[Rfam]
Shown here is a 129-nucleotide sequence from Banisteriopsis caapi, a member of the family "Plastid-psbA-1 3UTR RNA". Plastid psbA-1 is a non-coding RNA (ncRNA) present in plastids. It was identified in inverted repeat sequences in the 3 prime untranslate region (3UTR) of photosystem II quinone-binding protein (psbA). The sequence is in the family's curated seed alignment. The source organism's lineage runs through Eukaryota, Tracheophyta, Magnoliopsida, fabids and Banisteriopsis.
RNA sequence: GUGGAAGCUCCAUCUACAAAUGGAUAAGACCUCGGUUUUAGUGUAGUGUGUAAGAGUUUUUGAAAAAAAAAAAUAAGGAGCAAUAGCUAAUCUCUUGAUAGAACAAGAGAUUAGCUAUUGCUCCUUAUU
Numbered sequence: 001g002u003g004g005a006a007g008c009u010c011c012a013u014c015u016a017c018a019a020a021u022g023g024a025u026a027a028g029a030c031c032u033c034g035g036u037u038u039u040a041g042u043g044u045a046g047u048g049u050g051u052a053a054g055a056g057u058u059u060u061u062g063a064a065a066a067a068a069a070a071a072a073a074u075a076a077g078g079a080g081c082a083a084u085a086g087c088u089a090a091u092c093u094c095u096u097g098a099u100a101g102a103a104c105a106a107g108a109g110a111u112u113a114g115c116u117a118u119u120g121c122u123c124c125u126u127a128u129u
Stems, first nucleotide, its partner, number of pairs: 009024005068126001076125011088113003092109005